[Rfam]
Nucleotides: 070
Base pairs, nucleotide, nucleotide: 007064008063009062010061011060012059013058015056016055017054020051021050022049023048025046027044
Number, partner (000 for none) and nucleotide at each position: 001000a002000c003000g004000a005000a006000u007064c008063u009062u010061u011060u012059u013058g014000c015056g016055g017054u018000c019000u020051g021050g022049g023048c024000u025046u026000g027044c028000u029000g030000u031000u032000c033000u034000c035000u036000g037000c038000u039000c040000a041000c042000c043000c044027g045000g046025a047000a048023g049022c050021c051020c052000u053000u054017a055016c056015c057000c058013c059012a060011a061010a062009a063008a064007g065000c066000a067000u068000u069000u070000g
Shown here is a 70-nucleotide RNA from Tetraodon nigroviridis, a member of the family "mir-129 microRNA precursor family". On this family, see Lagos-Quintana et al., Curr Biol 2002: "Identification of tissue-specific microRNAs from mouse". It is one of the family's seed sequences. NCBI's taxonomy places the organism under Eukaryota, Bilateria, Actinopterygii, Eupercaria, Tetraodon.